[Rfam]
RNA sequence: CUAUCAUCGAGAAAGGUGGAGGGACUGGCCCUGAGAAACCUUGGCAACCGUCAAUUCAUAAUGAAGUAUGAACGGUGCCAAUUCCAUCCCGGUAUAAAGGUCGGGAAAGAUGAUGG
Numbered sequence: 001c002u003a004u005c006a007u008c009g010a011g012a013a014a015g016g017u018g019g020a021g022g023g024a025c026u027g028g029c030c031c032u033g034a035g036a037a038a039c040c041u042u043g044g045c046a047a048c049c050g051u052c053a054a055u056u057c058a059u060a061a062u063g064a065a066g067u068a069u070g071a072a073c074g075g076u077g078c079c080a081a082u083u084c085c086a087u088c089c090c091g092g093u094a095u096a097a098a099g100g101u102c103g104g105g106a107a108a109g110a111u112g113a114u115g116g
Stems, first nucleotide, its partner, number of pairs: 001116008013042005021031003026086003043079004048075002051071003083108001088105006
Source information:
This 116-nucleotide sequence from Chlorobium ferrooxidans belongs to the Rfam family "SAM riboswitch aptamer (S box leader)". The family's consensus secondary structure is taken from published work.